[Rfam]
RNA: c-di-AMP riboswitch aptamer (ydaO/yuaA leader)
RNA sequence: CGGACGGCACCGCCGAGUCGCCGCCAGGCGAGCCGAGGACCCACCCGUACCACGGGGUGAAUCCGGGGCCAUGGACAGGCCAUAGUCCCGGUAGGGCGCUCUUCCCGUCCGAACCCGUCAGCUAACCCGGUAGGCGGUCUGAGGAAGAAGG
Numbered sequence: 001c002g003g004a005c006g007g008c009a010c011c012g013c014c015g016a017g018u019c020g021c022c023g024c025c026a027g028g029c030g031a032g033c034c035g036a037g038g039a040c041c042c043a044c045c046c047g048u049a050c051c052a053c054g055g056g057g058u059g060a061a062u063c064c065g066g067g068g069c070c071a072u073g074g075a076c077a078g079g080c081c082a083u084a085g086u087c088c089c090g091g092u093a094g095g096g097c098g099c100u101c102u103u104c105c106c107g108u109c110c111g112a113a114c115c116c117g118u119c120a121g122c123u124a125a126c127c128c129g130g131u132a133g134g135c136g137g138u139c140u141g142a143g144g145a146a147g148a149a150g151g
Base pairs, nucleotide, nucleotide: 011136012135013134014133018031019030020029032131033130034129035128037126042054055116056115057114063091064090065089066088067087068086069085094110095109096108097107